[Rfam]
RNA sequence: GGAUCGAUGAUGACUGCCACAGAUGCAUUCCUUGGAAAUCUGAACAAAAUGAGUGAGAAAUCCCUACCAUCUCCUCACUGGAACUGAGGUCC
Dot-bracket structure: (((((....................(((((.(((..........)))...)))))................................)))))
Rfam assigns this 92-nucleotide RNA sequence from Balaenoptera physalus to the family "Small nucleolar RNA SNORD116". The organism belongs to Balaenoptera, within Eukaryota. A search with the family's covariance model found it, with a score of 100 bits. The family's consensus secondary structure was predicted with PFOLD. Gene Ontology terms of the family: nucleolus and RNA processing. On this family, see Cavaille et al., Proc Natl Acad Sci U S A 2000: "Identification of brain-specific and imprinted small nucleolar RNA genes exhibiting an unusual genomic organization".